[Rfam]
RNA sequence: AGGCAUCCCCAUUACCUAUGGACACGGUGCCGCAGGCUCACUCCCUCUGGAAUUCAGUUUCCAAGUGACCUGCCGGAAAGGUUUUCCGUGUCCAG
Numbered sequence: 001a002g003g004c005a006u007c008c009c010c011a012u013u014a015c016c017u018a019u020g021g022a023c024a025c026g027g028u029g030c031c032g033c034a035g036g037c038u039c040a041c042u043c044c045c046u047c048u049g050g051a052a053u054u055c056a057g058u059u060u061c062c063a064a065g066u067g068a069c070c071u072g073c074c075g076g077a078a079a080g081g082u083u084u085u086c087c088g089u090g091u092c093c094a095g
Base pairs, nucleotide, nucleotide: 002031003030004029005028006027007026009021010020011019012018033072034071035070036069039067040066041065042064049062050061051060052059

Shown here is a 95-nucleotide sequence from Pelodictyon luteolum, a member of the family "SAM-Chlorobi RNA".
It is annotated as a cis-regulatory element.
The sequence is in the family's curated seed alignment.